[Rfam]
Nucleotides: 148
Base pairs, nucleotide, nucleotide: 001144002143003142004141008135009134010133011132016130017129018128023124024123025122026121027120028119029118030117031061032060033059035057038053039052040051041050042049069087070086071085072084073083088116089115090114091113094109095108096107097106098105099104
Number, partner (000 for none) and nucleotide at each position: 001144g002143c003142c004141c005000a006000a007000a008135g009134u010133c011132g012000c013000a014000c015000g016130u017129g018128c019000c020000c021000a022000u023124g024123u025122g026121u027120g028119u029118c030117c031061g032060c033059c034000g035057a036000g037000u038053c039052c040051u041050c042049g043000a044000u045000g046000u047000g048000g049042u050041g051040a052039g053038g054000a055000u056000u057035u058000a059033g060032g061031u062000a063000a064000g065000g066000u067000a068000c069087c070086u071085g072084g073083a074000a075000c076000u077000a078000a079000c080000c081000c082000c083073u084072c085071c086070a087069g088116u089115c090114g091113c092000u093000a094109u095108u096107c097106c098105g099104g100000c101000c102000a103000a104099c105098c106097g107096g108095g109094a110000a111000a112000u113091g114090c115089g116088a117030g118029g119028a120027c121026a122025u123024a124023u125000g126000a127000a128018g129017c130016a131000a132011c133010g134009a135008c136000g137000g138000u139000g140000c141004g142003g143002g144001c145000c146000u147000u148000u
This 148-nucleotide RNA from Agrobacterium fabrum belongs to the Rfam family "Alphaproteobacterial sRNA ar45". The source organism's lineage runs through Bacteria, Hyphomicrobiales, Rhizobiaceae, Agrobacterium tumefaciens complex and Agrobacterium fabrum. Pairs were carried over by alignment from the consensus structure.